[Rfam]
RNA sequence: AGUGCAGGGAUUGUGUGUAUCAGGGCUGUGCUGAAUUCAAUGCACUCUUCUGAAAGAUUUCCCUGCAAGAUUACUAUGAGAAAAUGGGUAGAGUCACAUACUGAAUGACAAGAUGGCAGUGCUGCUGCAUUAAACCAUCCAGUCUACAACUAAGUUUGUCAAAGUU
Numbered sequence: 001a002g003u004g005c006a007g008g009g010a011u012u013g014u015g016u017g018u019a020u021c022a023g024g025g026c027u028g029u030g031c032u033g034a035a036u037u038c039a040a041u042g043c044a045c046u047c048u049u050c051u052g053a054a055a056g057a058u059u060u061c062c063c064u065g066c067a068a069g070a071u072u073a074c075u076a077u078g079a080g081a082a083a084a085u086g087g088g089u090a091g092a093g094u095c096a097c098a099u100a101c102u103g104a105a106u107g108a109c110a111a112g113a114u115g116g117c118a119g120u121g122c123u124g125c126u127g128c129a130u131u132a133a134a135c136c137a138u139c140c141a142g143u144c145u146a147c148a149a150c151u152a153a154g155u156u157u158g159u160c161a162a163a164g165u166u
Stems, first nucleotide, its partner, number of pairs: 004066007015045006078160002081157003085152003088147004
RNA: small nucleolar RNA snoR135